[Rfam]
RNA sequence: UAACCUCGGAUUAGGUAAGAAUAUUUACUAAAUUUAAGUAUAUUAAUAAAUAGAGGAAAAGAAAUUAAUAAGGAUUACUUUAAUAAUAGCGAGUAAAGUAGUAAUAGCUUAAAUUUAAAAUCUAGCUCCUUCGGGGUCCGAGUUAUAAUUUAUAGAGGAUACUUCGAGUUAUAGUUCCUUCCGAGUUCCCUAGAAUAGGACGCUAUAGAGGGUAAGAGCCCUAUCUAGUAGGAAACUAUAUUUAUAUAAAGCUCCCUUAACGAGUCGAGUAGUUUAGGAAUAUUAUUUUAAGGGGAGGUAUACUCUUUCUAAGGCUAAAUAUUAAUUAGAGAUUAAUAGCAUAUAAAUAGAAUAAUUAAAAGAUAAAAAGUAUUUUAAAAAGAGAAUUAAAUAGUAUAUAAAAUUAUUAAAAGGGAAGC
Numbered sequence: 001u002a003a004c005c006u007c008g009g010a011u012u013a014g015g016u017a018a019g020a021a022u023a024u025u026u027a028c029u030a031a032a033u034u035u036a037a038g039u040a041u042a043u044u045a046a047u048a049a050a051u052a053g054a055g056g057a058a059a060a061g062a063a064a065u066u067a068a069u070a071a072g073g074a075u076u077a078c079u080u081u082a083a084u085a086a087u088a089g090c091g092a093g094u095a096a097a098g099u100a101g102u103a104a105u106a107g108c109u110u111a112a113a114u115u116u117a118a119a120a121u122c123u124a125g126c127u128c129c130u131u132c133g134g135g136g137u138c139c140g141a142g143u144u145a146u147a148a149u150u151u152a153u154a155g156a157g158g159a160u161a162c163u164u165c166g167a168g169u170u171a172u173a174g175u176u177c178c179u180u181c182c183g184a185g186u187u188c189c190c191u192a193g194a195a196u197a198g199g200a201c202g203c204u205a206u207a208g209a210g211g212g213u214a215a216g217a218g219c220c221c222u223a224u225c226u227a228g229u230a231g232g233a234a235a236c237u238a239u240a241u242u243u244a245u246a247u248a249a250a251g252c253u254c255c256c257u258u259a260a261c262g263a264g265u266c267g268a269g270u271a272g273u274u275u276a277g278g279a280a281u282a283u284u285a286u287u288u289u290a291a292g293g294g295g296a297g298g299u300a301u302a303c304u305c306u307u308u309c310u311a312a313g314g315c316u317a318a319a320u321a322u323u324a325a326u327u328a329g330a331g332a333u334u335a336a337u338a339g340c341a342u343a344u345a346a347a348u349a350g351a352a353u354a355a356u357u358a359a360a361a362g363a364u365a366a367a368a369a370g371u372a373u374u375u376u377a378a379a380a381a382g383a384g385a386a387u388u389a390a391a392u393a394g395u396a397u398a399u400a401a402a403a404u405u406a407u408u409a410a411a412a413g414g415g416a417a418g419c
Stems, first nucleotide, its partner, number of pairs: 024055001025053003029049001035042002065072002076103004086094002106316004112150004118144002121141002125137003155258002157255003162251003168242001170240005176233004181228001185201001187200003204208001211221002267288007293310005350357002373384004
Rfam assigns this 419-nucleotide part of an RNA from Verticillium dahliae to the family "Eukaryotic large subunit ribosomal RNA". The sequence is in the family's curated seed alignment. The base pairs follow the family's consensus structure, which is taken from published work. The source organism's lineage runs through Eukaryota, Fungi, Ascomycota, Pezizomycotina and Verticillium dahliae.